Shown here is a 177-nucleotide sequence from Megasphaera micronuciformis, a member of the family "6S / SsrS RNA". E. coli 6S RNA was the first non coding RNA to be sequenced, but its function was unknown until recently. It consists of 184 nucleotides that fold into an extended hairpin structure with a large single-stranded internal bulge. The 6S RNA specifically associates with RNA polymerase holoenzyme containing the sigma70 specificity factor. The match comes from Rfam's covariance-model search (78 bits). The family's RNA type in Rfam is non-coding RNA gene. NCBI's taxonomy places the organism under Bacteria, Negativicutes, Veillonellales, Veillonellaceae, Megasphaera micronuciformis. The family has 150 seed sequences and 5,006 matches in Rfam 15.1.
RNA sequence: GAAACCCUACUGUGUGCGUAAAAAGUUCUCGAUGUUUUGAACCAACACUUUUACAUCGGGAGUCCGGGCUCUAUGGCGGCAAAACAAUGCCUACACGGGACUGUUAAGCGUUAUAGGAGGACACCCACCUGCUCAGGCAGGCUCAAAACUCGGCUAAGACGGCAUGGUGGGGCUCUU
Numbered sequence: 001g002a003a004a005c006c007c008u009a010c011u012g013u014g015u016g017c018g019u020a021a022a023a024a025g026u027u028c029u030c031g032a033u034g035u036u037u038u039g040a041a042c043c044a045a046c047a048c049u050u051u052u053a054c055a056u057c058g059g060g061a062g063u064c065c066g067g068g069c070u071c072u073a074u075g076g077c078g079g080c081a082a083a084a085c086a087a088u089g090c091c092u093a094c095a096c097g098g099g100a101c102u103g104u105u106a107a108g109c110g111u112u113a114u115a116g117g118a119g120g121a122c123a124c125c126c127a128c129c130u131g132c133u134c135a136g137g138c139a140g141g142c143u144c145a146a147a148a149c150u151c152g153g154c155u156a157a158g159a160c161g162g163c164a165u166g167g168u169g170g171g172g173c174u175c176u177u
Stems, first nucleotide, its partner, number of pairs: 003174001005172011017161003034149003038145003042141002058126003062122004069116001072115007084104002090099002
Dot-bracket structure: ..(.(((((((((((.(((..............(((.(((.((..............(((.((((...(..(((((((.....((....((......))...))....))))))))..)))).))).............)).))).))).........)))))))))))))).)...